[Rfam]
RNA sequence: GGGUUGGCUGGCAGAGGAAUAGAAGAAUCCAGGGUCAGCUGAGCAUGCCCUCAGGUGGCUCACUGUUCUUUUCUAGAAUGUCAGGUGAUGU
Numbered sequence: 001g002g003g004u005u006g007g008c009u010g011g012c013a014g015a016g017g018a019a020u021a022g023a024a025g026a027a028u029c030c031a032g033g034g035u036c037a038g039c040u041g042a043g044c045a046u047g048c049c050c051u052c053a054g055g056u057g058g059c060u061c062a063c064u065g066u067u068c069u070u071u072u073c074u075a076g077a078a079u080g081u082c083a084g085g086u087g088a089u090g091u
Stems, first nucleotide, its partner, number of pairs: 003089004008084006019074001021072007032061004037056001039054005

A member of the RNA family "mir-1178 microRNA precursor family" from Aotus nancymaae, 91 nucleotides long. NCBI's taxonomy places the organism under Eukaryota, Eumetazoa, Chordata, Sarcopterygii, Aotus. Rfam links the family to the GO terms miRNA-mediated post-transcriptional gene silencing and RISC complex. A reference for the family is Baev et al. (2009), "Computational identification of novel microRNA homologs in the chimpanzee genome", Comput Biol Chem.